The record is a 167-nucleotide RNA from Ruoffia halotolerans, which matches "M-box riboswitch aptamer (ykoK leader)" in Rfam. Rfam's curators write: M-box riboswitch, also know as ykoK leader is described as a metaloregulatory RNA that sense divalent metals and function as a genetic control element of genes related to divalent metal transport in bacteria. It was first reported upstream of the B.subtilis ykoK gene and genes with related functions in other bacteria. The pairing is the family consensus, mapped onto this sequence. The source organism's lineage runs through Bacteria, Bacillati, Bacilli, Aerococcaceae and Ruoffia.
Nucleotides: 167
Stems, first nucleotide, its partner, number of pairs: 006162005011154002013096001015150003020144003025140008039114005045074005054065004082104003087099003116128003
Number, partner (000 for none) and nucleotide at each position: 001000a002000a003000u004000a005000a006162g007161a008160u009159u010158u011154g012153u013096u014000a015150g016149g017148u018000g019000a020144g021143g022142c023000u024000c025140c026139u027138a028137u029136a030135c031134a032133u033000a034000c035000a036000u037000a038000g039114g040113c041112u042111a043110c044000u045074g046073c047072c048071c049070a050000a051000a052000a053000a054065c055064g056063u057062c058000c059000a060000g061000a062057g063056a064055c065054g066000c067000c068000a069000a070049u071048g072047g073046g074045u075000a076000u077000a078000a079000c080000a081000g082104g083103a084102a085000u086000u087099g088098u089097c090000g091000a092000a093000c094000u095000a096013a097089g098088g099087c100000u101000u102084u103083u104082c105000a106000u107000a108000a109000u110043g111042u112041a113040g114039c115000u116128a117127a118126c119000a120000g121000g122000a123000a124000u125000u126118g127117u128116u129000u130000a131000c132000g133032a134031u135030g136029u137028a138027u139026a140025g141000u142022g143021c144020u145000g146000a147000a148017a149016c150015u151000c152000c153012a154011c155000a156000a157000a158010g159009a160008a161007u162006c163000a164000g165000u166000a167000u